[Rfam]
RNA sequence: CUCCCACGUGAAAGCGAAGUCCCUGUGGAGCUUUACUGCAGCCUGCCGUUGCGGUAUUGUUGGGGAUGCAGAGGGUAGGCGGGAGCCGUCGAAGCCACCUCUCCGGGGGUGGUGGAGGCGCCGAUGGAACACCGCCCUUCCUCAGCGGUACCGCUAACCCGCGCUGCGGGGACACCGGUAGGUGGGCAGUUUGGGUGGGGCGCCACGCCCUCGAUAAGGAAACAAGGGCCCCCAAAGGUCGGCUCAGGGGGGUCAGAAAUCCCCCGUAGAGUGCAAGGGCAAAAGCCGGCUUGACUCGGAUCCGCACAACAAGGGUCCGAGAUGGGAAACCAGGGCCUAGCGAACCACCCAGUCCUCACCGAUGGGGGCGGGUGAUAAGAGAGAAGUUACCCUAGGGAUAACUGAGUUGUCUCCGGCAAGAGUUCACAUCGACCCGGAGGCUUGCUACUUCGUUGUCGUCUCUCCCUAUCCUGGCGGUGCAGCAGCUGCCAAGGGUGGGGCUGUACGCCCAUUAAAAGGGAUCGUGAGAUGGGUUCACUACGUCGCGAGACAGUAGGGUUGCUUUUCCGUGGGAGUGUU
Numbered sequence: 001c002u003c004c005c006a007c008g009u010g011a012a013a014g015c016g017a018a019g020u021c022c023c024u025g026u027g028g029a030g031c032u033u034u035a036c037u038g039c040a041g042c043c044u045g046c047c048g049u050u051g052c053g054g055u056a057u058u059g060u061u062g063g064g065g066a067u068g069c070a071g072a073g074g075g076u077a078g079g080c081g082g083g084a085g086c087c088g089u090c091g092a093a094g095c096c097a098c099c100u101c102u103c104c105g106g107g108g109g110u111g112g113u114g115g116a117g118g119c120g121c122c123g124a125u126g127g128a129a130c131a132c133c134g135c136c137c138u139u140c141c142u143c144a145g146c147g148g149u150a151c152c153g154c155u156a157a158c159c160c161g162c163g164c165u166g167c168g169g170g171g172a173c174a175c176c177g178g179u180a181g182g183u184g185g186g187c188a189g190u191u192u193g194g195g196u197g198g199g200g201c202g203c204c205a206c207g208c209c210c211u212c213g214a215u216a217a218g219g220a221a222a223c224a225a226g227g228g229c230c231c232c233c234a235a236a237g238g239u240c241g242g243c244u245c246a247g248g249g250g251g252g253u254c255a256g257a258a259a260u261c262c263c264c265c266g267u268a269g270a271g272u273g274c275a276a277g278g279g280c281a282a283a284a285g286c287c288g289g290c291u292u293g294a295c296u297c298g299g300a301u302c303c304g305c306a307c308a309a310c311a312a313g314g315g316u317c318c319g320a321g322a323u324g325g326g327a328a329a330c331c332a333g334g335g336c337c338u339a340g341c342g343a344a345c346c347a348c349c350c351a352g353u354c355c356u357c358a359c360c361g362a363u364g365g366g367g368g369c370g371g372g373u374g375a376u377a378a379g380a381g382a383g384a385a386g387u388u389a390c391c392c393u394a395g396g397g398a399u400a401a402c403u404g405a406g407u408u409g410u411c412u413c414c415g416g417c418a419a420g421a422g423u424u425c426a427c428a429u430c431g432a433c434c435c436g437g438a439g440g441c442u443u444g445c446u447a448c449u450u451c452g453u454u455g456u457c458g459u460c461u462c463u464c465c466c467u468a469u470c471c472u473g474g475c476g477g478u479g480c481a482g483c484a485g486c487u488g489c490c491a492a493g494g495g496u497g498g499g500g501c502u503g504u505a506c507g508c509c510c511a512u513u514a515a516a517a518g519g520g521a522u523c524g525u526g527a528g529a530u531g532g533g534u535u536c537a538c539u540a541c542g543u544c545g546c547g548a549g550a551c552a553g554u555a556g557g558g559u560u561g562c563u564u565u566u567c568c569g570u571g572g573g574a575g576u577g578u579u
Base pairs, nucleotide, nucleotide: 001575002574003573004572005571006570007569008568010567011566012565014562015561022396023395024394025393027392028391029388030387031386032385033384035190036189037188038187042182043181044180045179046178047177048176051154052153053152054151055150056149057148058147059146060145061144062143063142064141065140066139068137078136079135080134081133082132085119086118087117097110098109099108100107101106158170159169160168161167193206194204195203196202207229208228209227210226211225232335233334238290239289240288241287242286243285244270245269247265248264249263250262251261252260271280272279295321296320297319298318299317300316301315302314303313323332325330346374347373348372349371350370352369354368355367356366357365405446406445407444409443410440411439412438413437414436415435416434420430421429457532458530459529460528461527462524463521464520465519466518467517470495471494474489475488476487477486478485498510499509500508501507538556539555540554541553542551543550544549
The family of this 579-nucleotide part of an RNA from Candidatus Aciduliprofundum boonei is "Archaeal large subunit ribosomal RNA". The base pairs follow the family's consensus structure, which is taken from published work. Lineage of the source: Archaea > Methanobacteriati > Thermoplasmatota > Candidatus Aciduliprofundum > Candidatus Aciduliprofundum boonei.